[Rfam]
RNA sequence: GUUUGCCAAAAAUACACCGGUAAGCAGAUUUGCAUUGAUUUGUGGCUUCAAUA
Number, nucleotide and partner (000 for none) at each position: 001g025002u024003u023004u022005g021006c020007c019008a000009a000010a000011a000012a000013u000014a000015c000016a000017c000018c000019g007020g006021u005022a004023a003024g002025c001026a000027g000028a000029u000030u000031u000032g000033c000034a052035u000036u050037g049038a048039u000040u000041u000042g000043u000044g000045g000046c000047u000048u038049c037050a036051a000052u034053a000